[Rfam]
RNA sequence: AGUCACAAGUUUGAGGCCAUAGUAGAAGUGCUUAGGGCUUGGCCCUGUCAGAUUUUAAUGAAACUGAAUUCUGCU
Numbered sequence: 001a002g003u004c005a006c007a008a009g010u011u012u013g014a015g016g017c018c019a020u021a022g023u024a025g026a027a028g029u030g031c032u033u034a035g036g037g038c039u040u041g042g043c044c045c046u047g048u049c050a051g052a053u054u055u056u057a058a059u060g061a062a063a064c065u066g067a068a069u070u071c072u073g074c075u
Base pairs, nucleotide, nucleotide: 013045015044016043017042018041021075022074023073024072025071026070027069028040030038049066050065051064053062054061055060
The record is a 75-nucleotide RNA sequence from Alligator mississippiensis, which matches "Mammalian CPEB3 ribozyme" in Rfam. The mammalian CPEB3 ribozyme is a self cleaving RNA located in the second intron of the CPEB3 gene which belongs to a family of genes regulating messenger RNA polyadenylation. Pairs were carried over by alignment from the consensus structure, which is taken from published work.